About this RNA:
This 76-nucleotide RNA sequence from Alligator mississippiensis belongs to the Rfam family "Mammalian CPEB3 ribozyme". Its family is annotated with RNA nuclease activity in the Gene Ontology. NCBI's taxonomy places the organism under Eukaryota, Teleostomi, Dipnotetrapodomorpha, Sauria, Alligator.

[Rfam]
RNA sequence: GGUUGCAAGUUUGAGGCCAAAGCAGAAGCGCUCAUGGUGUGGCCCUUCCUGAUCCAAUGAAUCUGUGAAUUCUGCG
Numbered sequence: 001g002g003u004u005g006c007a008a009g010u011u012u013g014a015g016g017c018c019a020a021a022g023c024a025g026a027a028g029c030g031c032u033c034a035u036g037g038u039g040u041g042g043c044c045c046u047u048c049c050u051g052a053u054c055c056a057a058u059g060a061a062u063c064u065g066u067g068a069a070u071u072c073u074g075c076g
Base pairs, nucleotide, nucleotide: 013045015044016043017042018041022075023074024073025072026071027070028040029039030038049065051063052062053061054059